Rfam assigns this 53-nucleotide RNA from Gossypium australe to the family "Plastid-atpF group II-D1 intron". The literature on the family includes a 2023 paper in Plant Commun by Richter et al., "Retrograde signaling in plants: A critical review focusing on the GUN pathway and beyond". Rfam describes the family as follows. Plastid atpF is a non-coding RNA (ncRNA) recognised in plastids. It has been reported in the intron group II-D1 region of ATP synthase (atpF) genes. The family has 49 seed sequences and 1,372 matches in Rfam 15.1.
Nucleotides: 053
Base pairs, nucleotide, nucleotide: 011033012032013031014030015029016028017027
Number, partner (000 for none) and nucleotide at each position: 001000a002000u003000u004000u005000u006000u007000u008000u009000u010000u011033u012032c013031g014030a015029u016028a017027u018000a019000a020000a021000a022000c023000a024000c025000u026000g027017g028016u029015g030014u031013c032012g033011a034000u035000a036000a037000a038000a039000u040000g041000a042000u043000u044000u045000g046000a047000g048000c049000c050000c051000c052000u053000u